[Rfam]
Overview: The record is a 65-nucleotide RNA from Argiope bruennichi, which matches "Selenocysteine insertion sequence 1" in Rfam. Pairs were carried over by alignment from the consensus structure, which is taken from published work. By type it is a cis-regulatory element. The match comes from Rfam's covariance-model search (35 bits).
RNA sequence: UUGAGGCUAAUGACACUGUGUUCAGAAACUUGAAACAAGUUGGACAUGGUUGAUGAUUUCCUCAA
Numbered sequence: 001u002u003g004a005g006g007c008u009a010a011u012g013a014c015a016c017u018g019u020g021u022u023c024a025g026a027a028a029c030u031u032g033a034a035a036c037a038a039g040u041u042g043g044a045c046a047u048g049g050u051u052g053a054u055g056a057u058u059u060c061c062u063c064a065a
Stems, first nucleotide, its partner, number of pairs: 001065005015050010030038003